[Rfam]
A member of the RNA family "mir-393 microRNA precursor family" from Glycine max, 113 nucleotides long. Pairs were carried over by alignment from the consensus structure. Lineage of the source: Eukaryota > Streptophyta > Phaseoleae > Glycine > Glycine subgen. Soja. Gene Ontology terms of the family: miRNA-mediated post-transcriptional gene silencing and RISC complex.
RNA sequence: AAAGGAGGAAUCCAAAGGGAUAGCAUGAUCCCAAAUAUUGAGAAGGGGAGGGAAAGAGAAAAAUUUAUAAAUCUGAAAUUUGGGAUCAAUGCGAUCCCUUUGGAUGCCUCCUC
Numbered sequence: 001a002a003a004g005g006a007g008g009a010a011u012c013c014a015a016a017g018g019g020a021u022a023g024c025a026u027g028a029u030c031c032c033a034a035a036u037a038u039u040g041a042g043a044a045g046g047g048g049a050g051g052g053a054a055a056g057a058g059a060a061a062a063a064u065u066u067a068u069a070a071a072u073c074u075g076a077a078a079u080u081u082g083g084g085a086u087c088a089a090u091g092c093g094a095u096c097c098c099u100u101u102g103g104a105u106g107c108c109u110c111c112u113c
Stems, first nucleotide, its partner, number of pairs: 003112004008107001010105012023092003026088006035080001